RNA sequence: CCAGACGGUUGGACGGUCGCGCUCGGGCAAUGGGGAAACCCGUCCGGGUGAGGAAAGUCCGGGCUCCACGGAAACACGGUGCCGGCUAACGGCCGGCGGGGGCGACCCUAGGGAAAGUGCCACAGAAAGCAAACCGCCCGGAACGGUCCGCCGCUUCGGGUAAGGGUGAAAGGGUGCGGUAAGAGCGCACCGCCUCUCCGGCAACGGCGAGGGCAGGGUAAACCCCACCGGGAGCAAAACCGAGUAGGGACGGUAGCCGCGCGGCGGUGUGAUCUCUCUUUUGAGAUAUCCCCCCGAAAGACGGCAGGCGGGUUUUCGCGCCCCGUCCGGGUAGGUUGCGAGAGGCGGUCGGCAACGGCCGCCCCAGAUGAAUGGCCGUCCACCACCGGUUCGCCGGUGGGGACAGAACCCGGCUUACAGACCGUCUGGCCCU
Numbered sequence: 001c002c003a004g005a006c007g008g009u010u011g012g013a014c015g016g017u018c019g020c021g022c023u024c025g026g027g028c029a030a031u032g033g034g035g036a037a038a039c040c041c042g043u044c045c046g047g048g049u050g051a052g053g054a055a056a057g058u059c060c061g062g063g064c065u066c067c068a069c070g071g072a073a074a075c076a077c078g079g080u081g082c083c084g085g086c087u088a089a090c091g092g093c094c095g096g097c098g099g100g101g102g103c104g105a106c107c108c109u110a111g112g113g114a115a116a117g118u119g120c121c122a123c124a125g126a127a128a129g130c131a132a133a134c135c136g137c138c139c140g141g142a143a144c145g146g147u148c149c150g151c152c153g154c155u156u157c158g159g160g161u162a163a164g165g166g167u168g169a170a171a172g173g174g175u176g177c178g179g180u181a182a183g184a185g186c187g188c189a190c191c192g193c194c195u196c197u198c199c200g201g202c203a204a205c206g207g208c209g210a211g212g213g214c215a216g217g218g219u220a221a222a223c224c225c226c227a228c229c230g231g232g233a234g235c236a237a238a239a240c241c242g243a244g245u246a247g248g249g250a251c252g253g254u255a256g257c258c259g260c261g262c263g264g265c266g267g268u269g270u271g272a273u274c275u276c277u278c279u280u281u282u283g284a285g286a287u288a289u290c291c292c293c294c295c296g297a298a299a300g301a302c303g304g305c306a307g308g309c310g311g312g313u314u315u316u317c318g319c320g321c322c323c324c325g326u327c328c329g330g331g332u333a334g335g336u337u338g339c340g341a342g343a344g345g346c347g348g349u350c351g352g353c354a355a356c357g358g359c360c361g362c363c364c365c366a367g368a369u370g371a372a373u374g375g376c377c378g379u380c381c382a383c384c385a386c387c388g389g390u391u392c393g394c395c396g397g398u399g400g401g402g403a404c405a406g407a408a409c410c411c412g413g414c415u416u417a418c419a420g421a422c423c424g425u426c427u428g429g430c431c432c433u
Stems, first nucleotide, its partner, number of pairs: 001429010011418001012380007020050009055416003059413005064234004077230005082096005097111001098109004112225002117223002119219003134165002136161007144153003173191006192214001193212004198207003238337004248328006344363008
RNA: Bacterial RNase P class A
Organism: Pacificispira spongiicola